[Rfam]
Rfam assigns this 140-nucleotide RNA sequence from Jeotgalibacillus soli to the family "PyrR binding site". Pairs were carried over by alignment from the consensus structure, which is taken from published work. Rfam's curators write: This family represents the PyrR binding site and terminator structure. This RNA structure is found upstream of a variety of genes involved in pyrimidine biosynthesis and transport.

RNA sequence: GGUACCUUUAAUUCAGUCCCGUGAGGCUGACAAGGACAGCGGAAAUUAUGAAGAGCAUGGGGUGACGUGUAUGCGUAUUGCCAUCGUUCUUCAUAGUGUAAAGAGGCUUCUUGUCAGAAAUGACAAGAAGCCUCUUUUGU
Dot-bracket structure: ....((((....((((((......)))))).)))).......(.((((((((((((.............................)))))))))))).)..((((((((((((((......)))))))))))))).....